c-di-GMP-I-GGC riboswitch aptamer: an 85-nucleotide sequence from Cohnella terricola. NCBI's taxonomy places the organism under Bacteria, Bacillati, Bacilli, Caryophanales, Cohnella. Its family is annotated with cyclic-di-GMP binding in the Gene Ontology. The family has 40 seed sequences and 1,298 matches in Rfam 15.1.
RNA sequence: GACGACAAACGGCAAACCUGUCGAAAGACAGGGGCGCAAAACUAAAGGGCCUUCCCUCUUCGAGGUUGGCAGCCAGUUGCCGAAA
Numbered sequence: 001g002a003c004g005a006c007a008a009a010c011g012g013c014a015a016a017c018c019u020g021u022c023g024a025a026a027g028a029c030a031g032g033g034g035c036g037c038a039a040a041a042c043u044a045a046a047g048g049g050c051c052u053u054c055c056c057u058c059u060u061c062g063a064g065g066u067u068g069g070c071a072g073c074c075a076g077u078u079g080c081c082g083a084a085a
Stems, first nucleotide, its partner, number of pairs: 003082002012037002017032006035072001040078004047074002049070003